[Rfam]
Shown here is a 150-nucleotide RNA from Rhizobium giardinii, a member of the family "Alphaproteobacterial sRNA ar7". For this family Rfam cites "A survey of sRNA families in alpha-proteobacteria" (del Val et al., RNA Biol, 2012). The source organism's lineage runs through Bacteria, Pseudomonadati, Pseudomonadota, Hyphomicrobiales and Rhizobium.
RNA sequence: CAACGGCAAAUUGAACACGCCGUCGUCUGGCACAAGGCCUGUCCCCCGCCGAAGCCAGAUGUUAGGACAAAGGCCUAUCCCCCCUCUCCGGGCCUUUGUCCGAAUUCUGACAAGACCGCCGUGGCCCCGCCUCCGCCAUGGCGGUUUUUG
Numbered sequence: 001c002a003a004c005g006g007c008a009a010a011u012u013g014a015a016c017a018c019g020c021c022g023u024c025g026u027c028u029g030g031c032a033c034a035a036g037g038c039c040u041g042u043c044c045c046c047c048g049c050c051g052a053a054g055c056c057a058g059a060u061g062u063u064a065g066g067a068c069a070a071a072g073g074c075c076u077a078u079c080c081c082c083c084c085u086c087u088c089c090g091g092g093c094c095u096u097u098g099u100c101c102g103a104a105u106u107c108u109g110a111c112a113a114g115a116c117c118g119c120c121g122u123g124g125c126c127c128c129g130c131c132u133c134c135g136c137c138a139u140g141g142c143g144g145u146u147u148u149u150g
Stems, first nucleotide, its partner, number of pairs: 026059006036050003065101011113146001116144010